[Rfam]
RNA sequence: GGAUGCCUGAGGGUAAGGUAGUUUCAGUACGAGAGGAACGAGCUACCGGCGCCUCUAGUGUACCGGUUGUCCGAGAGGGCAUAGCCGGGUAGCCACGCGCCAGUCAAUAAGGCCUGAAAGCAUCUAAGGCCGAAGUGAUUCCCGAAAAUAGGCGUCCAUUCCUGGGUAAUCUUCCGGGACUGGUGACAGUCACGGAAAGCCAGGACAAAGGCAGGGGCUAGAAGACCCCGUUGAUGGACUGGGGGUGUACGCAUGGAGCUUCGGCGACAUGUUCAGCCCACCAGCACCAAUAGCCUGAGGU
Number, nucleotide and partner (000 for none) at each position: 001g157002g156003a155004u154005g153006c152007c151008u150009g000010a000011g143012g142013g141014u000015a000016a000017g047018g046019u045020a044021g043022u042023u041024u040025c000026a000027g000028u000029a000030c000031g000032a000033g000034a000035g000036g000037a000038a000039c000040g024041a023042g022043c021044u020045a019046c018047c017048g101049g100050c099051g098052c097053c000054u000055c000056u095057a000058g093059u000060g000061u000062a000063c088064c087065g086066g085067u084068u081069g080070u079071c078072c077073g000074a000075g000076a000077g072078g071079g070080c069081a068082u000083a000084g067085c066086c065087g064088g063089g000090u000091a000092g000093c058094c000095a056096c000097g052098c051099g050100c049101c048102a000103g000104u138105c137106a136107a000108u000109a000110a000111g131112g130113c129114c128115u127116g000117a000118a000119a000120g000121c000122a000123u000124c000125u000126a000127a115128g114129g113130c112131c111132g000133a000134a000135g000136u106137g105138a104139u000140u000141c013142c012143c011144g000145a000146a000147a000148a000149u000150a008151g007152g006153c005154g004155u003156c002157c001158a000159u000160u000161c000162c000163u000164g000165g000166g000167u000168a000169a000170u000171c000172u000173u000174c000175c000176g000177g000178g000179a000180c000181u000182g000183g000184u000185g000186a000187c000188a000189g000190u000191c000192a000193c000194g000195g000196a000197a000198a000199g000200c000201c000202a000203g000204g000205a000206c000207a000208a000209a296210g295211g294212c293213a000214g229215g228216g227217g226218c000219u000220a000221g000222a000223a000224g000225a000226c217227c216228c215229c214230g000231u000232u000233g000234a000235u289236g288237g287238a000239c284240u283241g282242g281243g279244g278245g277246u000247g000248u000249a000250c000251g272252c271253a270254u269255g268256g000257a000258g265259c000260u000261u000262c000263g000264g000265c258266g000267a000268c255269a254270u253271g252272u251273u000274c000275a000276g000277c245278c244279c243280a000281c242282c241283a240284g239285c000286a000287c237288c236289a235290a000291u000292a000293g212294c211295c210296u209297g000298a000299g000300g000301u000
About this RNA
This 301-nucleotide part of an RNA from candidate division MSBL1 archaeon SCGC-AAA382A20 belongs to the Rfam family "Archaeal large subunit ribosomal RNA". Taxonomically the source falls in candidate division MSBL1 (Archaea, Methanobacteriati, Methanobacteriota). The base pairs follow the family's consensus structure, which is taken from published work. The literature on the family includes a 2001 paper in Science by Yusupov et al., "Crystal structure of the ribosome at 5.5 A resolution".